A member of the RNA family "Glycine riboswitch aptamer" from Venatorbacter sp. C2-1, 109 nucleotides long. A search with the family's covariance model found it, with a score of 53 bits.

RNA sequence: GAUAGGCCAUCUGGAGAGAGGCUGCACCUGAUGCAGUCCACCGAAGGAGCAAGCCGGCGGACCAUUCCGUACGGUUAAACUCUCAGGUACACAGGACAGGGGGAGGGGC
Numbered sequence: 001g002a003u004a005g006g007c008c009a010u011c012u013g014g015a016g017a018g019a020g021g022c023u024g025c026a027c028c029u030g031a032u033g034c035a036g037u038c039c040a041c042c043g044a045a046g047g048a049g050c051a052a053g054c055c056g057g058c059g060g061a062c063c064a065u066u067c068c069g070u071a072c073g074g075u076u077a078a079a080c081u082c083u084c085a086g087g088u089a090c091a092c093a094g095g096a097c098a099g100g101g102g103g104a105g106g107g108g109c
Stems, first nucleotide, its partner, number of pairs: 007103002010100004020038007040088003043084002047082003053075004